[Rfam]
RNA sequence: CUAAGUUACAAAGAUUUCCCGAAAGGAUUCGUAAGCAAUUACGGAGGCGCCUUGUAACCGAAAUGAUAAAGGGGGAAGAUGAUAGAUG
Dot-bracket structure: ...............(((((..((((.(((((........)))))....))))....((...........)))))))...........
Source information
SAM-III riboswitch aptamer (SMK box): an 88-nucleotide sequence from Carnobacterium maltaromaticum. Lineage of the source: Bacteria > Bacillati > Bacilli > Carnobacterium > Carnobacterium maltaromaticum. Gene Ontology terms of the family: regulation of translational initiation and methionine adenosyltransferase activity. For this family Rfam cites "S-adenosylmethionine directly inhibits binding of 30S ribosomal subunits to the SMK box translational riboswitch RNA" (Fuchs et al., Proc Natl Acad Sci U S A, 2007). It scores 66 bits against the family's covariance model. Pairs were carried over by alignment from the consensus structure, which is taken from published work.